[Rfam]
RNA sequence: UGUACAUGGUAGGCUUUCAUUCAUUCGUUUGCACAUUCGGUGAAGGUCUACUGUGUGCCAG
Numbered sequence: 001u002g003u004a005c006a007u008g009g010u011a012g013g014c015u016u017u018c019a020u021u022c023a024u025u026c027g028u029u030u031g032c033a034c035a036u037u038c039g040g041u042g043a044a045g046g047u048c049u050a051c052u053g054u055g056u057g058c059c060a061g
Stems, first nucleotide, its partner, number of pairs: 002058020
The record is a 61-nucleotide RNA sequence from Canis lupus, which matches "mir-493 microRNA precursor family" in Rfam. The sequence is in the family's curated seed alignment.